[Rfam]
The family of this 342-nucleotide RNA sequence from Ralstonia sp. 5_2_56FAA is "Bacterial RNase P class A". It is annotated as a ribozyme. Ribonuclease P (RNase P) is a ubiquitous endoribonuclease, found in archaea, bacteria and eukarya as well as chloroplasts and mitochondria. Rfam links the family to the GO terms tRNA processing, dimeric ribonuclease P complex and ribonuclease P activity.

RNA sequence: GAAGCGGACCAGACAAUCGCUGCUUUCGCCGCCUCGUGCGAGCGGAAGGGGAGGAAAGUCCGGACUCCAUAGAGCAGGGUGAUGGCUAACGACCAUCCACGGUGACGUGCGGAAUAGGGCCACAGAGACGAGUCUUCGCCCGGGCUUCGGCCAGGGCGAAGGGUGAAACGCGGUAACCUCCACCCGGAGCAAUCCCAAGUAAGCAGGCGAUGAAGCGGCUCGCUGAGUCUGCGGGUAGGGAGCUUGAGCCGGCUGGCAACAGCCGGUCUAGAGGAAUGGUUGUCACGCCGCUGGUUUCGGCCACGCGGCGCACAGAAUCCGGCUUAUCGGUCCGCUUCGCUU
Numbered sequence: 001g002a003a004g005c006g007g008a009c010c011a012g013a014c015a016a017u018c019g020c021u022g023c024u025u026u027c028g029c030c031g032c033c034u035c036g037u038g039c040g041a042g043c044g045g046a047a048g049g050g051g052a053g054g055a056a057a058g059u060c061c062g063g064a065c066u067c068c069a070u071a072g073a074g075c076a077g078g079g080u081g082a083u084g085g086c087u088a089a090c091g092a093c094c095a096u097c098c099a100c101g102g103u104g105a106c107g108u109g110c111g112g113a114a115u116a117g118g119g120c121c122a123c124a125g126a127g128a129c130g131a132g133u134c135u136u137c138g139c140c141c142g143g144g145c146u147u148c149g150g151c152c153a154g155g156g157c158g159a160a161g162g163g164u165g166a167a168a169c170g171c172g173g174u175a176a177c178c179u180c181c182a183c184c185c186g187g188a189g190c191a192a193u194c195c196c197a198a199g200u201a202a203g204c205a206g207g208c209g210a211u212g213a214a215g216c217g218g219c220u221c222g223c224u225g226a227g228u229c230u231g232c233g234g235g236u237a238g239g240g241a242g243c244u245u246g247a248g249c250c251g252g253c254u255g256g257c258a259a260c261a262g263c264c265g266g267u268c269u270a271g272a273g274g275a276a277u278g279g280u281u282g283u284c285a286c287g288c289c290g291c292u293g294g295u296u297u298c299g300g301c302c303a304c305g306c307g308g309c310g311c312a313c314a315g316a317a318u319c320c321g322g323c324u325u326a327u328c329g330g331u332c333c334g335c336u337u338c339g340c341u342u
Base pairs, nucleotide, nucleotide: 001338002337003336004335005334006333007332008331009330010329011327012284013283014282015281016280017279018278020051021050023048024047025046026045027044028043056325057324058323060322061321062320063319064318065189066188067187068186072221073220074219075218077185078184079183080182081181082096083095084094085093097111098109099108100107101106112180113179117178118177119174120173121172134162135161137158138157139156140155141154143152144151145150193241194240195239196238203232204231205230206229207228208227214224215223216222248267249266250265251264252263253262254261255260